mir-73 microRNA precursor family: a 93-nucleotide RNA sequence from Caenorhabditis elegans. The sequence is in the family's curated seed alignment. For this family Rfam cites "Improved annotation of C. elegans microRNAs by deep sequencing reveals structures associated with processing by Drosha and Dicer" (Warf et al., RNA, 2011). The organism belongs to Caenorhabditis, within Eukaryota. The base pairs follow the family's consensus structure, which was predicted with RNAalifold.

[Rfam]
RNA sequence: GAGUCCCACACACGACUGGACUUCCAUAUCGAGCCACAGCUAUCAACGAAUUUGCUGGCAAGAUGUAGGCAGUUCAGUUGUGCGUUUAUGGAG
Numbered sequence: 001g002a003g004u005c006c007c008a009c010a011c012a013c014g015a016c017u018g019g020a021c022u023u024c025c026a027u028a029u030c031g032a033g034c035c036a037c038a039g040c041u042a043u044c045a046a047c048g049a050a051u052u053u054g055c056u057g058g059c060a061a062g063a064u065g066u067a068g069g070c071a072g073u074u075c076a077g078u079u080g081u082g083c084g085u086u087u088a089u090g091g092a093g
Stems, first nucleotide, its partner, number of pairs: 013080010024069002026066005033059003038056003